[Rfam]
RNA sequence: AGCCACUAAAAAUGGCUAAAAUUAUCCCUGACCUAUACAGGCCUCUGCUAUGGGGGUGAUGGCCAGUCCUGGUGUCUGAGUGAUU
Dot-bracket structure: ((.(((....(......(..(..((((.(.((((...(((((....))).)).)))).).))..).)..)..).)....))).))
Numbered sequence: 001a002g003c004c005a006c007u008a009a010a011a012a013u014g015g016c017u018a019a020a021a022u023u024a025u026c027c028c029u030g031a032c033c034u035a036u037a038c039a040g041g042c043c044u045c046u047g048c049u050a051u052g053g054g055g056g057u058g059a060u061g062g063c064c065a066g067u068c069c070u071g072g073u074g075u076c077u078g079a080g081u082g083a084u085u
Stems, first nucleotide, its partner, number of pairs: 001085002004082003011075001018073001021070001024067001025065001026062002029059001031057004038052002040049003
Notes:
This 85-nucleotide RNA from Muntiacus reevesi belongs to the Rfam family "Small nucleolar RNA SNORD86". Lineage of the source: Eukaryota > Bilateria > Craniata > Muntiacinae > Muntiacus. A reference for the family is Filippini et al. (2001), "U86, a novel snoRNA with an unprecedented gene organization in yeast", Biochem Biophys Res Commun. Rfam links the family to the GO terms nucleolus and RNA processing.